A member of the RNA family "THF (Tetrahydrofolate) riboswitch aptamer", 94 nucleotides long. The sequence is in the family's curated seed alignment. Tetrahydrofolate (THF) riboswitch was first reported for Ames et al. as an RNA motif in 5' untranslated (5'-UTR)regions of folate transport and biosynthesis genes in Firmicutes genomes. The family's consensus secondary structure is taken from published work.

[Rfam]
RNA sequence: GGGAGUAGGAACUGUGCGUUAAGUACCGGUCGGAUGGGAGGUUGCCGCCGGGCGAAGGAGCUUCGGCUCCGCGAUACGGUUACCGCAACCGCCU
Numbered sequence: 001g002g003g004a005g006u007a008g009g010a011a012c013u014g015u016g017c018g019u020u021a022a023g024u025a026c027c028g029g030u031c032g033g034a035u036g037g038g039a040g041g042u043u044g045c046c047g048c049c050g051g052g053c054g055a056a057g058g059a060g061c062u063u064c065g066g067c068u069c070c071g072c073g074a075u076a077c078g079g080u081u082a083c084c085g086c087a088a089c090c091g092c093c094u
Stems, first nucleotide, its partner, number of pairs: 001094003008084002010081007017073003023053002026051005032046002037090002041086001057070004